[Rfam]
RNA sequence: UGGACGUUUCCUAGGCACUUAGCAUGCAGUUUCUCAUUUGCUGUGGACGUGACAAUAGAGAAUUCCUCACUGGGUUUUCUGUCUGCCACCCUGCUAGUGAUCAGUCCACUGGGAACAUCU
Numbered sequence: 001u002g003g004a005c006g007u008u009u010c011c012u013a014g015g016c017a018c019u020u021a022g023c024a025u026g027c028a029g030u031u032u033c034u035c036a037u038u039u040g041c042u043g044u045g046g047a048c049g050u051g052a053c054a055a056u057a058g059a060g061a062a063u064u065c066c067u068c069a070c071u072g073g074g075u076u077u078u079c080u081g082u083c084u085g086c087c088a089c090c091c092u093g094c095u096a097g098u099g100a101u102c103a104g105u106c107c108a109c110u111g112g113g114a115a116c117a118u119c120u
Base pairs, nucleotide, nucleotide: 003053005051006050007049010046011045026041027040028039029038066113067112068111069110073106074105075104076103084099085098086097
Shown here is a 120-nucleotide RNA sequence from Aotus nancymaae, a member of the family "Small nucleolar RNA SNORA32".
Its family is annotated with nucleolus and RNA processing in the Gene Ontology.
Rfam classes the family as an H/ACA-box small nucleolar RNA.
ACA32 is a member of the H/ACA class of snoRNA that guide the sites of modification of uridines to pseudouridines.
Rfam 15.1 lists 615 matches to the family in 234 species.
The source organism's lineage runs through Eukaryota, Opisthokonta, Bilateria, Dipnotetrapodomorpha and Aotus.